A member of the RNA family "Group II catalytic intron D1-D4-6" from Sporomusa malonica, 234 nucleotides long. It scores 114 bits against the family's covariance model. The pairing is the family consensus, mapped onto this sequence. Rfam links the family to the GO term Group II intron splicing. The organism belongs to Sporomusa, within Bacteria. The literature on the family includes a 2001 paper in Trends Genet by Bonen and Vogel, "The ins and outs of group II introns".
[Rfam]
RNA sequence: AGAAUCCCGCCUGAGAAGGCCUAGCCAGUCACUCAGUAUCCAGCCUUGGGACUGAAGCGGUAACGCCAGGUCUAAGCGUAGGCAAGAAAGGUAGUAGGCCGAAAGCACAAGCUGAAGAUGUAGAACCCCGAAAUGGUUGAUAAUGGGAAAGGUUGAUGUAUGGGACGAGCAGAAGACAACACUGAGUCUAGCGAAGAAGGCGAGUUAGACGCGGCGCCCCGGGGUCGAAGGUCU
Numbered sequence: 001a002g003a004a005u006c007c008c009g010c011c012u013g014a015g016a017a018g019g020c021c022u023a024g025c026c027a028g029u030c031a032c033u034c035a036g037u038a039u040c041c042a043g044c045c046u047u048g049g050g051a052c053u054g055a056a057g058c059g060g061u062a063a064c065g066c067c068a069g070g071u072c073u074a075a076g077c078g079u080a081g082g083c084a085a086g087a088a089a090g091g092u093a094g095u096a097g098g099c100c101g102a103a104a105g106c107a108c109a110a111g112c113u114g115a116a117g118a119u120g121u122a123g124a125a126c127c128c129c130g131a132a133a134u135g136g137u138u139g140a141u142a143a144u145g146g147g148a149a150a151g152g153u154u155g156a157u158g159u160a161u162g163g164g165a166c167g168a169g170c171a172g173a174a175g176a177c178a179a180c181a182c183u184g185a186g187u188c189u190a191g192c193g194a195a196g197a198a199g200g201c202g203a204g205u206u207a208g209a210c211g212c213g214g215c216g217c218c219c220c221g222g223g224g225u226c227g228a229a230g231g232u233c234u
Stems, first nucleotide, its partner, number of pairs: 011036005018030003022203001024201002039087002043083004047078002049073005057066003123226001125225006145219003151215001152177003157171003182214003186210007